Nucleotides: 105
Base pairs, nucleotide, nucleotide: 042098043097044096045095046094047093054086055085056084057083058082059081061078062077063076064075
Number, partner (000 for none) and nucleotide at each position: 001000c002000u003000g004000u005000u006000c007000a008000g009000u010000a011000g012000c013000u014000g015000g016000u017000a018000g019000a020000g021000u022000c023000u024000g025000a026000a027000a028000a029000a030000c031000u032000c033000a034000u035000a036000a037000a038000u039000u040000g041000u042098g043097u044096g045095u046094u047093g048000u049000c050000u051000a052000u053000c054086a055085g056084c057083u058082u059081c060000a061078u062077c063076u064075c065000u066000a067000g068000u069000u070000c071000u072000a073000u074000a075064g076063a077062g078061a079000g080000u081059g082058g083057a084056g085055u086054u087000a088000a089000a090000u091000a092000a093047c094046a095045g096044c097043a098042c099000u100000a101000c102000a103000u104000u105000u